This 257-nucleotide part of an RNA from Methanolacinia petrolearia belongs to the Rfam family "Archaeal large subunit ribosomal RNA". Its family is annotated with structural constituent of ribosome and ribosome in the Gene Ontology.

RNA sequence: GAGUUUACUCUUUCGGCGAGGUUAACCUGUUAUGGGAAGCCGAAGCGAAAGCGACAAGUCCGUAAGUUUUCUAUGGGACGACGUAUUAAAAGUGCGUGGAGUCGGAAGGGUAAGACCCGAAGCCCAGUGAUCUAUGCGUGGGCAGGCUGAAGGGUGACGAAAGUUGCGUGGAGGGCCGAAACGGUUUUGAUAUGCAAAUCAUUCGUAUGACCUGCGUAUAGGGGUGAAAGGCCAAUCGAACUGGGCAUCCGCUGGUU
Dot-bracket structure: ....(((((((((((((..((((..((......))..))))...((....)).....((((...((....))...))))..((((.......))))....)))))))))))))..((.(...((((((...((((((((((((.((((...(.(((((....))))).)....))))...((((..(.((........))).))))..).))))))))))).(((.....)))......))))))......).))..
Numbered sequence: 001g002a003g004u005u006u007a008c009u010c011u012u013u014c015g016g017c018g019a020g021g022u023u024a025a026c027c028u029g030u031u032a033u034g035g036g037a038a039g040c041c042g043a044a045g046c047g048a049a050a051g052c053g054a055c056a057a058g059u060c061c062g063u064a065a066g067u068u069u070u071c072u073a074u075g076g077g078a079c080g081a082c083g084u085a086u087u088a089a090a091a092g093u094g095c096g097u098g099g100a101g102u103c104g105g106a107a108g109g110g111u112a113a114g115a116c117c118c119g120a121a122g123c124c125c126a127g128u129g130a131u132c133u134a135u136g137c138g139u140g141g142g143c144a145g146g147c148u149g150a151a152g153g154g155u156g157a158c159g160a161a162a163g164u165u166g167c168g169u170g171g172a173g174g175g176c177c178g179a180a181a182c183g184g185u186u187u188u189g190a191u192a193u194g195c196a197a198a199u200c201a202u203u204c205g206u207a208u209g210a211c212c213u214g215c216g217u218a219u220a221g222g223g224g225u226g227a228a229a230g231g232c233c234a235a236u237c238g239a240a241c242u243g244g245g246c247a248u249c250c251g252c253u254g255g256u257u
Stems, first nucleotide, its partner, number of pairs: 005113013020041004026035002045052002058079004065072002082096004116255002119252001123245006132221011143209001145177004152169001154167005181206004187201001189200002223233003
Rfam's curators put it in the seed alignment.